[Rfam]
RNA: Plastid-psbA-1 3UTR RNA
RNA sequence: UCGAAGUUUCAUCUACAAUGGAUAAGAUUUUUGUCUUAGGGGUAUACGAAUGUUGAAACAAAGUAGCAAUACCCUGUCUUGCUUUAGCAAGACAGGGGUAUUGCUACUUG
Numbered sequence: 001u002c003g004a005a006g007u008u009u010c011a012u013c014u015a016c017a018a019u020g021g022a023u024a025a026g027a028u029u030u031u032u033g034u035c036u037u038a039g040g041g042g043u044a045u046a047c048g049a050a051u052g053u054u055g056a057a058a059c060a061a062a063g064u065a066g067c068a069a070u071a072c073c074c075u076g077u078c079u080u081g082c083u084u085u086a087g088c089a090a091g092a093c094a095g096g097g098g099u100a101u102u103g104c105u106a107c108u109u110g
Base pairs, nucleotide, nucleotide: 008022009021010020011019012018061109062108063107064106065105066104067103068102069101070100071099072098073096074095076093077092078091079090080089